The family of this 81-nucleotide RNA sequence from Punica granatum is "Small nucleolar RNA J33". Its family is annotated with RNA processing and nucleolus in the Gene Ontology. The match comes from Rfam's covariance-model search (87 bits). Taxonomically the source falls in Punica (Eukaryota, Viridiplantae, Embryophyta, eudicotyledons). Pairs were carried over by alignment from the consensus structure.
RNA sequence: CUGUGAGGGGAAUGAUGUACUACUAUCGGGCCUUGAAUAUGCUGGCAUUUCUUGAUUCUGCGUCUGAAAUGGACAUCAGGG
Numbered sequence: 001c002u003g004u005g006a007g008g009g010g011a012a013u014g015a016u017g018u019a020c021u022a023c024u025a026u027c028g029g030g031c032c033u034u035g036a037a038u039a040u041g042c043u044g045g046c047a048u049u050u051c052u053u054g055a056u057u058c059u060g061c062g063u064c065u066g067a068a069a070u071g072g073a074c075a076u077c078a079g080g081g
Base pairs, nucleotide, nucleotide: 001081002080004078005077006076